[Rfam]
RNA sequence: AGAGUUUCCUCGGGGUGCUGAUGAUAUUGGCUGAGAUAAUACCCGUAGAACCUGAACAGGGUAAUUCCUGCGAAGGGAAGGCUUCUAGAAUCUUU
Numbered sequence: 001a002g003a004g005u006u007u008c009c010u011c012g013g014g015g016u017g018c019u020g021a022u023g024a025u026a027u028u029g030g031c032u033g034a035g036a037u038a039a040u041a042c043c044c045g046u047a048g049a050a051c052c053u054g055a056a057c058a059g060g061g062u063a064a065u066u067c068c069u070g071c072g073a074a075g076g077g078a079a080g081g082c083u084u085c086u087a088g089a090a091u092c093u094u095u
Stems, first nucleotide, its partner, number of pairs: 008081003011045004016039001017031005051076003057070004
RNA: TPP riboswitch aptamer (THI element)
Organism: Rhizosphaericola mali